Notes:
SAH (S-adenosyl-L-homocysteine) riboswitch aptamer: a 78-nucleotide RNA from Methylibium petroleiphilum. A reference for the family is Wang et al. (2008), "Riboswitches that sense S-adenosylhomocysteine and activate genes involved in coenzyme recycling", Mol Cell. Lineage of the source: Bacteria > Pseudomonadati > Burkholderiales > Sphaerotilaceae > Methylibium petroleiphilum.
RNA sequence: ACUUUCGAGGAGCGUUGCAACUCCCGCCCGGGAGCCAGGCUCGAAAGUCAUCCCCCGAUGCAACGGCGCUCACCCGCA
Dot-bracket structure: .(((((((............(((((....)))))......)))))))...............................
Numbered sequence: 001a002c003u004u005u006c007g008a009g010g011a012g013c014g015u016u017g018c019a020a021c022u023c024c025c026g027c028c029c030g031g032g033a034g035c036c037a038g039g040c041u042c043g044a045a046a047g048u049c050a051u052c053c054c055c056c057g058a059u060g061c062a063a064c065g066g067c068g069c070u071c072a073c074c075c076g077c078a
Stems, first nucleotide, its partner, number of pairs: 002047007021034005